The record is a 117-nucleotide RNA sequence from Dokdonella fugitiva, which matches "ALIL pseudoknot" in Rfam. The family has 26 seed sequences and 2,146 matches in Rfam 15.1. The literature on the family includes a 2008 paper in J Biol Chem by Mazauric et al., "Apical loop-internal loop RNA pseudoknots: a new type of stimulator of -1 translational frameshifting in bacteria". Rfam classes the family as a cis-regulatory element.

Nucleotides: 117
Base pairs, nucleotide, nucleotide: 016032017031018030019029020028078117079116080115081114082113089112090111092109093108094107095106096105098103
Number, partner (000 for none) and nucleotide at each position: 001000g002000g003000c004000g005000u006000a007000u008000u009000u010000u011000g012000c013000c014000c015000a016032g017031g018030c019029g020028g021000a022000g023000c024000u025000c026000a027000a028020c029019c030018g031017c032016c033000g034000c035000a036000c037000c038000a039000a040000g041000u042000g043000a044000u045000g046000c047000g048000c049000u050000c051000g052000u053000u054000u055000g056000u057000g058000g059000a060000c061000g062000a063000g064000c065000a066000c067000c068000g069000c070000g071000a072000c073000g074000u075000c076000u077000a078117c079116g080115g081114a082113g083000u084000c085000g086000a087000g088000c089112c090111g091000a092109u093108c094107u095106g096105c097000c098103g099000a100000g101000u102000g103098c104000u105096g106095c107094a108093g109092a110000u111090c112089g113082c114081u115080c116079c117078g
The organism belongs to Dokdonella, within Bacteria.